[Rfam]
RNA: Glycine riboswitch aptamer
RNA sequence: CUGACCCACGCGGGAGACAUCGGGAUUCGCGUCCCGAGGCCGAAGGCGCAACCGCCCCGGAAACGCUCAGGCAAAAGGACCGCGCGGGUUUA
Numbered sequence: 001c002u003g004a005c006c007c008a009c010g011c012g013g014g015a016g017a018c019a020u021c022g023g024g025a026u027u028c029g030c031g032u033c034c035c036g037a038g039g040c041c042g043a044a045g046g047c048g049c050a051a052c053c054g055c056c057c058c059g060g061a062a063a064c065g066c067u068c069a070g071g072c073a074a075a076a077g078g079a080c081c082g083c084g085c086g087g088g089u090u091u092a
Stems, first nucleotide, its partner, number of pairs: 006087002009084005020037004039072003042068002046066003052060002